[Rfam]
RNA sequence: GUAUUUGCAAUGAUAAGAAAUACAAUUCCUCGUUCUGAAUGCUAAUGGCAUGACAGACUCUGUUUAACACCCAUAGAAUCUGAGCAAU
Numbered sequence: 001g002u003a004u005u006u007g008c009a010a011u012g013a014u015a016a017g018a019a020a021u022a023c024a025a026u027u028c029c030u031c032g033u034u035c036u037g038a039a040u041g042c043u044a045a046u047g048g049c050a051u052g053a054c055a056g057a058c059u060c061u062g063u064u065u066a067a068c069a070c071c072c073a074u075a076g077a078a079u080c081u082g083a084g085c086a087a088u
Base pairs, nucleotide, nucleotide: 003088004087006086007085
The record is an 88-nucleotide sequence from Phtheirospermum japonicum, which matches "Small nucleolar RNA snoR8a" in Rfam. It scores 80 bits against the family's covariance model. Rfam links the family to the GO terms RNA processing and nucleolus. By type it is a C/D-box small nucleolar RNA. For this family Rfam cites "Multiple snoRNA gene clusters from Arabidopsis" (Brown et al., RNA, 2001).